Shown here is a 160-nucleotide RNA sequence from Physcomitrium patens, a member of the family "MIR538 microRNA precursor family". The source organism's lineage runs through Eukaryota, Bryophyta, Bryophytina, Bryopsida and Physcomitrium. Its family is annotated with RISC complex and miRNA-mediated post-transcriptional gene silencing in the Gene Ontology. A search with the family's covariance model found it, with a score of 133 bits.
RNA sequence: UCACGAAGAGUUCUUAGUUCUCCAUGCUUCUCUAACGUUGCAUGGAGUCUAUGUCUGGACCUCCUCCAUUUGCUCUUUCAAGAGAAUGUGAGAAUUUCGAGAUUCGGACAUAGCCUUCAUGCAUGCUAGAGUAGAAUGGAAUCUCCUGAUCCUCUUGGAA
Numbered sequence: 001u002c003a004c005g006a007a008g009a010g011u012u013c014u015u016a017g018u019u020c021u022c023c024a025u026g027c028u029u030c031u032c033u034a035a036c037g038u039u040g041c042a043u044g045g046a047g048u049c050u051a052u053g054u055c056u057g058g059a060c061c062u063c064c065u066c067c068a069u070u071u072g073c074u075c076u077u078u079c080a081a082g083a084g085a086a087u088g089u090g091a092g093a094a095u096u097u098c099g100a101g102a103u104u105c106g107g108a109c110a111u112a113g114c115c116u117u118c119a120u121g122c123a124u125g126c127u128a129g130a131g132u133a134g135a136a137u138g139g140a141a142u143c144u145c146c147u148g149a150u151c152c153u154c155u156u157g158g159a160a
Base pairs, nucleotide, nucleotide: 004157005156006155010151012149013148021140022139023138024137025136030131031130032129033128034127036125037124038123040122041121042120043119044118045117046116047115049113050112051111052110053109054108055107056106057105058104059103061101062100063099064092065091066090067088068087069086070085071084